[Rfam]
RNA sequence: AAGUGUUCAGGCUCUUUUAGAAUUUGUGUAGCAGGUUUUCUGGUUUUCACCAGAAACCUUU
Numbered sequence: 001a002a003g004u005g006u007u008c009a010g011g012c013u014c015u016u017u018u019a020g021a022a023u024u025u026g027u028g029u030a031g032c033a034g035g036u037u038u039u040c041u042g043g044u045u046u047u048c049a050c051c052a053g054a055a056a057c058c059u060u061u
Stems, first nucleotide, its partner, number of pairs: 034058003038055007
RNA: U7 small nuclear RNA